RNA sequence: UCUCACCUAGCCACUUGUCAUUUUCUAAUUAGUUCUUAGUGUGUUUCAAUUUUUUAACAACAAAUUAGAAAAUGACUAGUGAUUAGUUGAGA
Numbered sequence: 001u002c003u004c005a006c007c008u009a010g011c012c013a014c015u016u017g018u019c020a021u022u023u024u025c026u027a028a029u030u031a032g033u034u035c036u037u038a039g040u041g042u043g044u045u046u047c048a049a050u051u052u053u054u055u056a057a058c059a060a061c062a063a064a065u066u067a068g069a070a071a072a073u074g075a076c077u078a079g080u081g082a083u084u085a086g087u088u089g090a091g092a
Stems, first nucleotide, its partner, number of pairs: 002091004007086004012081004017076014032061003036057004
RNA: MIR6288 microRNA precursor family